[Rfam]
RNA sequence: CGGGGCGACUCUGGAGAGCGCCGCCGGUUGCCGGUGGCCACCGAUGGGGCAAAACUCUCAGGUAACCGGACAGAGGGGUGGCG
Numbered sequence: 001c002g003g004g005g006c007g008a009c010u011c012u013g014g015a016g017a018g019c020g021c022c023g024c025c026g027g028u029u030g031c032c033g034g035u036g037g038c039c040a041c042c043g044a045u046g047g048g049g050c051a052a053a054a055c056u057c058u059c060a061g062g063u064a065a066c067c068g069g070a071c072a073g074a075g076g077g078g079u080g081g082c083g
Stems, first nucleotide, its partner, number of pairs: 006078001009075005020038004040063003043059002047057003
RNA: Glycine riboswitch aptamer
Organism: Parasulfuritortus cantonensis